[Rfam]
RNA sequence: ACACGAGGAAGGAGGUGGUCUGAAGUUGAAGGACAUACGGACACGUGAGGUGGCUGCCCGCUAGCCGCUGACGCUUCCGGAAUUCACCGACCGCGUCGGCGGCCGGCGAAUACCGGGCAGUUACCCGGCCCCCGAGCUUUCCGGUCUCGUCCAGACCGGAGUCGCGCAUCCCGCGCGAAGGCUCGGGGGCUGUCCGCG
Numbered sequence: 001a002c003a004c005g006a007g008g009a010a011g012g013a014g015g016u017g018g019u020c021u022g023a024a025g026u027u028g029a030a031g032g033a034c035a036u037a038c039g040g041a042c043a044c045g046u047g048a049g050g051u052g053g054c055u056g057c058c059c060g061c062u063a064g065c066c067g068c069u070g071a072c073g074c075u076u077c078c079g080g081a082a083u084u085c086a087c088c089g090a091c092c093g094c095g096u097c098g099g100c101g102g103c104c105g106g107c108g109a110a111u112a113c114c115g116g117g118c119a120g121u122u123a124c125c126c127g128g129c130c131c132c133c134g135a136g137c138u139u140u141c142c143g144g145u146c147u148c149g150u151c152c153a154g155a156c157c158g159g160a161g162u163c164g165c166g167c168a169u170c171c172c173g174c175g176c177g178a179a180g181g182c183u184c185g186g187g188g189g190c191u192g193u194c195c196g197c198g
Stems, first nucleotide, its partner, number of pairs: 014058006059108004064103002067100004072095003126192013141159006